[Rfam]
RNA sequence: AGAACCAAUACCCGAACUGAACUCUCGUGGGUCUGCAGUUGAUAUUUCGAAAGCUUGUAGCACCAUGAGAUUCAGCUCCGGUGUUGGUUCG
Numbered sequence: 001a002g003a004a005c006c007a008a009u010a011c012c013c014g015a016a017c018u019g020a021a022c023u024c025u026c027g028u029g030g031g032u033c034u035g036c037a038g039u040u041g042a043u044a045u046u047u048c049g050a051a052a053g054c055u056u057g058u059a060g061c062a063c064c065a066u067g068a069g070a071u072u073c074a075g076c077u078c079c080g081g082u083g084u085u086g087g088u089u090c091g
Base pairs, nucleotide, nucleotide: 003089004088005087006086007085009083011081012080014078015077017075018074019073023070024069025068026067027066028065029064030063033060034059035058036057037056
The record is a 91-nucleotide sequence from Aedes aegypti, which matches "mir-998 microRNA precursor family" in Rfam. The source organism's lineage runs through Eukaryota, Dicondylia, Eumetabola, Endopterygota and Stegomyia. Rfam's curators put it in the seed alignment.